[Rfam]
RNA sequence: CUCUUAUUAUGAGUGGUAGAGGGACUGGCCCGUUGAAACCCAGCAACCUUUCAAUUCGUUGAAAAGGUGCUAAAUCCUGCGAAGUGUGAUGCUUCGAGAGAUAAGAG
Numbered sequence: 001c002u003c004u005u006a007u008u009a010u011g012a013g014u015g016g017u018a019g020a021g022g023g024a025c026u027g028g029c030c031c032g033u034u035g036a037a038a039c040c041c042a043g044c045a046a047c048c049u050u051u052c053a054a055u056u057c058g059u060u061g062a063a064a065a066g067g068u069g070c071u072a073a074a075u076c077c078u079g080c081g082a083a084g085u086g087u088g089a090u091g092c093u094u095c096g097a098g099a100g101a102u103a104a105g106a107g
Stems, first nucleotide, its partner, number of pairs: 001107008013041001015040003021031003025079001027077002042071004047067002049064004075099001080096006
SAM riboswitch aptamer (S box leader): a 107-nucleotide RNA from Listeria innocua. NCBI's taxonomy places the organism under Bacteria, Bacillati, Bacillota, Listeriaceae, Listeria.